The record is a 114-nucleotide sequence from Vanessa tameamea, which matches "Potassium channel RNA editing signal" in Rfam. It scores 95 bits against the family's covariance model. Rfam's curators write: This family represents a group of sequences related to the human potassium channel Kv1.1 hairpin element which directs the efficient modification of an adenosine to inosine by an adenosine deaminase acting on RNA (ADAR). The source organism's lineage runs through Eukaryota, Insecta, Eumetabola, Ditrysia and Vanessa. It is annotated as a cis-regulatory element.
[Rfam]
RNA sequence: GUGGGCUACGGUGACAUGGCGCCCAAAACUUAUCUGGGCAUGUUCGUUGGAGCACUCUGUGCUCUCGCCGGCGUGCUCACGAUAGCACUCCCUGUGCCUGUCAUAGUGUCCAAC
Numbered sequence: 001g002u003g004g005g006c007u008a009c010g011g012u013g014a015c016a017u018g019g020c021g022c023c024c025a026a027a028a029c030u031u032a033u034c035u036g037g038g039c040a041u042g043u044u045c046g047u048u049g050g051a052g053c054a055c056u057c058u059g060u061g062c063u064c065u066c067g068c069c070g071g072c073g074u075g076c077u078c079a080c081g082a083u084a085g086c087a088c089u090c091c092c093u094g095u096g097c098c099u100g101u102c103a104u105a106g107u108g109u110c111c112a113a114c
Stems, first nucleotide, its partner, number of pairs: 001114002004111002007108003011104001013102004018097001021095002037077004049063002